[Rfam]
RNA sequence: CCUGCUGUUUCACCAGCAGUAGCCUAUCGGGAUAUGCAGCAGUAGCAAUGCCGCUGUGUAAAGCUCCCGAGACAAUGUAGCCUCAGCCGCGAGGUUGGUGUUGAACCCGUGAGGGGAGAACAUUUCUGCCAGCGCCAAGGCGGAAGGGAAC
Numbered sequence: 001c002c003u004g005c006u007g008u009u010u011c012a013c014c015a016g017c018a019g020u021a022g023c024c025u026a027u028c029g030g031g032a033u034a035u036g037c038a039g040c041a042g043u044a045g046c047a048a049u050g051c052c053g054c055u056g057u058g059u060a061a062a063g064c065u066c067c068c069g070a071g072a073c074a075a076u077g078u079a080g081c082c083u084c085a086g087c088c089g090c091g092a093g094g095u096u097g098g099u100g101u102u103g104a105a106c107c108c109g110u111g112a113g114g115g116g117a118g119a120a121c122a123u124u125u126c127u128g129c130c131a132g133c134g135c136c137a138a139g140g141c142g143g144a145a146g147g148g149a150a151c
Stems, first nucleotide, its partner, number of pairs: 002019006028069005033060008042051003083098006099122004107114002125144006
A member of the RNA family "Group II catalytic intron D1-D4-7" from Candidatus Manganitrophus noduliformans, 151 nucleotides long. About the family: Group II introns are found in rRNA, tRNA and mRNA of organelles in fungi, plants and protists, and also in mRNA in bacteria. The pairing is the family consensus, mapped onto this sequence. Taxonomically the source falls in Candidatus Manganitrophus (Bacteria, Pseudomonadati, Candidatus Troglogloeales, Candidatus Manganitrophaceae). Gene Ontology term of the family: Group II intron splicing. A search with the family's covariance model found it, with a score of 124 bits. A reference for the family is Bonen and Vogel (2001), "The ins and outs of group II introns", Trends Genet.